[Rfam]
RNA sequence: UUUACCGGUUUACUUUAUAUUCCCCAUUGUAAUCCUUUAUUUUUAUCUUGUCAAUAGUUUUUUUAAAAAAAUAUUAGCGCUUUCAUUAUCUUUUUAAUCAUUUUAAUAGACAGAAAUUUCAAAAUAUUCCAUUUUUAAGGAAAAUAAAUCUUUUUAUAAAUAAAAAUAUUUAUUUAUUGACAAAACCGAUUUACUAGAAUAUAAU
Number, nucleotide and partner (000 for none) at each position: 001u000002u000003u000004a191005c000006c000007g000008g187009u000010u185011u184012a000013c000014u000015u032016u031017a030018u029019a028020u000021u000022c000023c000024c000025c000026a000027u000028u019029g018030u017031a016032a015033u000034c000035c000036u000037u000038u000039a000040u000041u000042u000043u000044u000045a000046u000047c000048u000049u183050g000051u000052c000053a000054a178055u000056a000057g145058u144059u143060u142061u141062u140063u139064u138065a000066a136067a135068a000069a134070a133071a132072u131073a000074u000075u000076a000077g000078c000079g000080c000081u000082u000083u000084c000085a000086u000087u000088a000089u110090c109091u108092u000093u000094u000095u000096a000097a000098u000099c000100a000101u000102u000103u000104u000105a000106a000107u000108a091109g090110a089111c000112a000113g000114a000115a000116a000117u000118u000119u000120c000121a000122a000123a000124a000125u000126a000127u000128u000129c000130c000131a072132u071133u070134u069135u067136u066137a000138a064139g063140g062141a061142a060143a059144a058145u057146a000147a171148a170149u000150c000151u166152u165153u164154u163155u162156a161157u000158a000159a000160a000161u156162a155163a154164a153165a152166a151167u000168a000169u000170u148171u147172a000173u000174u000175u000176a000177u000178u054179g000180a000181c000182a000183a049184a011185a010186c000187c008188g000189a000190u000191u004192u000193a000194c000195u000196a000197g000198a000199a000200u000201a000202u000203a000204a000205u000